[Rfam]
RNA sequence: UCAAGGUCCCCGUGCGGCGACACCUCGCCCAACUCCCCAGGGUCGAGAGACAGCAAGGGUAAGUGAGCUCUGUCGGGUGCGCGGGGGCCCCUUCAU
Numbered sequence: 001u002c003a004a005g006g007u008c009c010c011c012g013u014g015c016g017g018c019g020a021c022a023c024c025u026c027g028c029c030c031a032a033c034u035c036c037c038c039a040g041g042g043u044c045g046a047g048a049g050a051c052a053g054c055a056a057g058g059g060u061a062a063g064u065g066a067g068c069u070c071u072g073u074c075g076g077g078u079g080c081g082c083g084g085g086g087g088c089c090c091c092u093u094c095a096u
Base pairs, nucleotide, nucleotide: 005089006088007087008086009085010084011083012082013081014080015077018075019074020073021072022071024067025066026065027064028063034059035058036057042051043050044049

Bacterial small signal recognition particle RNA: a 96-nucleotide sequence from Micropruina sp.
The organism belongs to Micropruina, within Bacteria.
By type it is a non-coding RNA gene.
The match comes from Rfam's covariance-model search (54 bits).
The signal recognition particle (SRP) is a universally conserved ribonucleoprotein involved in the co-translational targeting of proteins to membranes.
The literature on the family includes a 2003 paper in Nucleic Acids Res by Rosenblad et al., "SRPDB: Signal Recognition Particle Database".